The family of this 74-nucleotide RNA from Eptatretus burgeri is "mir-122 microRNA precursor family". Pairs were carried over by alignment from the consensus structure, which was predicted with RNAalifold. The match comes from Rfam's covariance-model search (74 bits). Gene Ontology terms of the family: RISC complex and miRNA-mediated post-transcriptional gene silencing. The family has 32 seed sequences and 666 matches in Rfam 15.1.
RNA sequence: CACAGCGAUGGAGUGUGACAAUGGUGUUUGUGUCUGUCAUGUUCAAACGCCAUUGUCACACUAAUUCGCUGAGG
Numbered sequence: 001c002a003c004a005g006c007g008a009u010g011g012a013g014u015g016u017g018a019c020a021a022u023g024g025u026g027u028u029u030g031u032g033u034c035u036g037u038c039a040u041g042u043u044c045a046a047a048c049g050c051c052a053u054u055g056u057c058a059c060a061c062u063a064a065u066u067c068g069c070u071g072a073g074g
Stems, first nucleotide, its partner, number of pairs: 012062007020054011